Rfam assigns this 85-nucleotide RNA sequence from Bacillus sp. FJAT-26390 to the family "c-di-GMP-I riboswitch aptamer". Gene Ontology term of the family: cyclic-di-GMP binding. Taxonomically the source falls in Bacillus (Bacteria, Bacillota, Bacilli, Bacillaceae). The base pairs follow the family's consensus structure, which is taken from published work.

RNA sequence: GUACGAUAAAGGCAAAACCAUUGAAAAGUGGUGACGCAAAGCUACAGGGGCUUAUCUGAAAUCAGACUGCCAGCCAGCUACCGAA
Number, nucleotide and partner (000 for none) at each position: 001g000002u000003a000004c000005g000006a000007u000008a000009a000010a000011g000012g037013c036014a000015a000016a000017a032018c031019c030020a029021u028022u027023g000024a000025a000026a000027a022028g021029u020030g019031g018032u017033g000034a000035c000036g013037c012038a000039a000040a079041g078042c077043u076044a000045c000046a000047g075048g074049g071050g070051c069052u000053u000054a000055u000056c065057u064058g063059a000060a000061a000062u000063c058064a057065g056066a000067c000068u000069g051070c050071c049072a000073g000074c048075c047076a043077g042078c041079u040080a000081c000082c000083g000084a000085a000